Rfam assigns this 98-nucleotide RNA from Crocodylus porosus to the family "Small nucleolar RNA SNORD125". For this family Rfam cites "snoSeeker: an advanced computational package for screening of guide and orphan snoRNA genes in the human genome" (Yang et al., Nucleic Acids Res, 2006). Lineage of the source: Eukaryota > Dipnotetrapodomorpha > Sauropsida > Sauria > Crocodylus. The family is grouped with related families in Rfam's "SNORD61 clan".
[Rfam]
RNA sequence: AGCAGGAACGGCCUCACAUGAUGAUCCUUCUCUCUGAGCAGCUAUGGUGAUGAGUAAACCUGAGCCUCUAAGAAGUUGACUGAAGAGGCUGUUCCUCC
Numbered sequence: 001a002g003c004a005g006g007a008a009c010g011g012c013c014u015c016a017c018a019u020g021a022u023g024a025u026c027c028u029u030c031u032c033u034c035u036g037a038g039c040a041g042c043u044a045u046g047g048u049g050a051u052g053a054g055u056a057a058a059c060c061u062g063a064g065c066c067u068c069u070a071a072g073a074a075g076u077u078g079a080c081u082g083a084a085g086a087g088g089c090u091g092u093u094c095c096u097c098c
Stems, first nucleotide, its partner, number of pairs: 007093009
Dot-bracket structure: ......(((((((((.....................................................................))))))))).....